[Rfam]
RNA: T-box leader
Organism: Anaerococcus lactolyticus
RNA sequence: AAAAACCAUAUGACAAGAAGAGUAGUUUAGAAGAAUCUUUUUUAGAGAGCUCCGGUUGGUGAAAAGGAGCAAAGAGGCGACUAGAUGAAGAUGGCCUUGGAUGGGAUGGGUCGAUAUGAGAUCCGUACGGGAAUUCCCGUUAUAGAAUUAGAGUAUGUUUGUACUUGAUGAGUGUAUGUUUGGGUGACCAAGCAUAAAAUAAGGUGGUAACGCGAUUUAAACGUCCUUAUA
Numbered sequence: 001a002a003a004a005a006c007c008a009u010a011u012g013a014c015a016a017g018a019a020g021a022g023u024a025g026u027u028u029a030g031a032a033g034a035a036u037c038u039u040u041u042u043u044a045g046a047g048a049g050c051u052c053c054g055g056u057u058g059g060u061g062a063a064a065a066g067g068a069g070c071a072a073a074g075a076g077g078c079g080a081c082u083a084g085a086u087g088a089a090g091a092u093g094g095c096c097u098u099g100g101a102u103g104g105g106a107u108g109g110g111u112c113g114a115u116a117u118g119a120g121a122u123c124c125g126u127a128c129g130g131g132a133a134u135u136c137c138c139g140u141u142a143u144a145g146a147a148u149u150a151g152a153g154u155a156u157g158u159u160u161g162u163a164c165u166u167g168a169u170g171a172g173u174g175u176a177u178g179u180u181u182g183g184g185u186g187a188c189c190a191a192g193c194a195u196a197a198a199a200u201a202a203g204g205u206g207g208u209a210a211c212g213c214g215a216u217u218u219a220a221a222c223g224u225c226c227u228u229a230u231a
Stems, first nucleotide, its partner, number of pairs: 007103002015098003025086006038073003049070005106126007128139003175196007201228004212224003216220001